The family of this 101-nucleotide RNA from Emericellopsis cladophorae is "Small nucleolar RNA Z13/snr52". Lineage of the source: Eukaryota > saccharomyceta > leotiomyceta > sordariomyceta > Emericellopsis.
[Rfam]
RNA sequence: CUCUCUCCUAUGAUGAAAUAUUUCGGAUGUAAAUCUUUAUUGUCACCUGAAAGCGCAAAACCAUGUGGAAAUUUUCCGUUGCCUUCCUUCUGAUCGAGAGC
Numbered sequence: 001c002u003c004u005c006u007c008c009u010a011u012g013a014u015g016a017a018a019u020a021u022u023u024c025g026g027a028u029g030u031a032a033a034u035c036u037u038u039a040u041u042g043u044c045a046c047c048u049g050a051a052a053g054c055g056c057a058a059a060a061c062c063a064u065g066u067g068g069a070a071a072u073u074u075u076c077c078g079u080u081g082c083c084u085u086c087c088u089u090c091u092g093a094u095c096g097a098g099a100g101c
Stems, first nucleotide, its partner, number of pairs: 003100003024078004